[Rfam]
RNA: Small nucleolar RNA SNORA57
RNA sequence: CCUCCUUUCCUUGGCAGGGUCUGGGUGUGCGGUCCCGCUCCCCGUUAUGUGCGGAGGCAGAGCGAAAGGGUCCCAGCCCUUCCGGUGGCAUGUCUUCGGUGUCGGCGGAUUCUGGUUCGCCAGUUCUAUCCUCAGACGCCGGGACACUU
Numbered sequence: 001c002c003u004c005c006u007u008u009c010c011u012u013g014g015c016a017g018g019g020u021c022u023g024g025g026u027g028u029g030c031g032g033u034c035c036c037g038c039u040c041c042c043c044g045u046u047a048u049g050u051g052c053g054g055a056g057g058c059a060g061a062g063c064g065a066a067a068g069g070g071u072c073c074c075a076g077c078c079c080u081u082c083c084g085g086u087g088g089c090a091u092g093u094c095u096u097c098g099g100u101g102u103c104g105g106c107g108g109a110u111u112c113u114g115g116u117u118c119g120c121c122a123g124u125u126c127u128a129u130c131c132u133c134a135g136a137c138g139c140c141g142g143g144a145c146a147c148u149u
Stems, first nucleotide, its partner, number of pairs: 001057005015044001017042003022037004083141005102123001104121005